Background
Rfam assigns this 54-nucleotide RNA sequence from Triplophysa rosa to the family "UnaL2 LINE 3' element".
[Rfam]
Nucleotides: 054
Base pairs, nucleotide, nucleotide: 013043014041015040016039020036021035022034023033024032025031
Number, partner (000 for none) and nucleotide at each position: 001000g002000g003000u004000u005000c006000a007000u008000g009000g010000u011000a012000a013043u014041g015040c016039a017000a018000g019000u020036c021035g022034c023033u024032u025031u026000g027000g028000a029000u030000a031025a032024a033023a034022g035021c036020g037000u038000c039016u040015g041014c042000c043013a044000a045000a046000u047000g048000c049000a050000u051000a052000a053000a054000u
It is annotated as a cis-regulatory element. The eel long interspersed element (LINE) UnaL2 and its partner short interspersed element (SINE) share a conserved 3' tail containing a stem-loop that is critical for their retrotransposition. Presumably, the first step of retrotransposition is the recognition of their 3' tails by UnaL2-encoded reverse transcriptase. The solution structure of a 17-nucleotide RNA derived from the 3' tail of UnaL2 was determined by NMR. NCBI's taxonomy places the organism under Eukaryota, Teleostomi, Otophysi, Cypriniphysae, Triplophysa.